Rfam assigns this 134-nucleotide RNA sequence from Eubacterium sp. CAG:841 to the family "Ribosomal protein L10 leader".
RNA sequence: AUAUCAUAAUUAAGCGAUCCUAAGACAGCAGGUUUUGUAAAAGCUGAGCUUCCCUGCCGAGGAAAGAUAAUAAAAAUGCUUUUUAUGUCUUUUCCGUUCUCUUUGGAUAGCGGGAAAGAUUUUUUUAUUACCGC
Numbered sequence: 001a002u003a004u005c006a007u008a009a010u011u012a013a014g015c016g017a018u019c020c021u022a023a024g025a026c027a028g029c030a031g032g033u034u035u036u037g038u039a040a041a042a043g044c045u046g047a048g049c050u051u052c053c054c055u056g057c058c059g060a061g062g063a064a065a066g067a068u069a070a071u072a073a074a075a076a077u078g079c080u081u082u083u084u085a086u087g088u089c090u091u092u093u094c095c096g097u098u099c100u101c102u103u104u105g106g107a108u109a110g111c112g113g114g115a116a117a118g119a120u121u122u123u124u125u126u127a128u129u130a131c132c133g134c
Stems, first nucleotide, its partner, number of pairs: 028057005088119010

Notes:
The family's consensus secondary structure was predicted with CMfinder. A search with the family's covariance model found it, with a score of 63 bits.